[Rfam]
RNA sequence: UUAACUCAAAUUUGUAUGCAGUUGGAACGUUUGCCGCUAAGGGCGUUGUUCCAACUGCACACAAAUUUGAGUUA
Numbered sequence: 001u002u003a004a005c006u007c008a009a010a011u012u013u014g015u016a017u018g019c020a021g022u023u024g025g026a027a028c029g030u031u032u033g034c035c036g037c038u039a040a041g042g043g044c045g046u047u048g049u050u051c052c053a054a055c056u057g058c059a060c061a062c063a064a065a066u067u068u069g070a071g072u073u074a
Base pairs, nucleotide, nucleotide: 008068009067010066011065012064013063014062015061018058020056021055022054023053024052025051026050027049028048029047034042035041

mir-2807 microRNA precursor family: a 74-nucleotide sequence from Bombyx mori.
The base pairs follow the family's consensus structure, which was predicted with RNAalifold.